This 75-nucleotide RNA sequence from Python bivittatus belongs to the Rfam family "U1A polyadenylation inhibition element (PIE)". This family represents the U1A polyadenylation inhibition element (PIE). PIE is a regulatory RNA which is responsible for the regulation of the length of the polyA tail of the U1A pre-mRNA. The PIE is located in the U1A mRNA 3' UTR. PIE adopts a U-shaped structure, with binding sites for a single U1A protein at each bend and when complexed with the two proteins it blocks activity of poly(A) polymerase (PAP), and inhibits its activity. It is annotated as a cis-regulatory element. On this family, see Varani et al., Nat Struct Biol 2000: "The NMR structure of the 38 kDa U1A protein - PIE RNA complex reveals the basis of cooperativity in regulation of polyadenylation by human U1A protein". Rfam links the family to the GO term regulation of mRNA polyadenylation. The organism belongs to Python, within Eukaryota. The family has 39 seed sequences and 510 matches in Rfam 15.1.
RNA sequence: UGCAAAAGCAUUGUACCCAGAGUCUGACGGCCAGACAUUGCACCUGGAGCUUUUCUUUUUUGCAGUAAAAAUGUU
Numbered sequence: 001u002g003c004a005a006a007a008g009c010a011u012u013g014u015a016c017c018c019a020g021a022g023u024c025u026g027a028c029g030g031c032c033a034g035a036c037a038u039u040g041c042a043c044c045u046g047g048a049g050c051u052u053u054u055c056u057u058u059u060u061u062g063c064a065g066u067a068a069a070a071a072u073g074u075u
Stems, first nucleotide, its partner, number of pairs: 005053005017047004022036005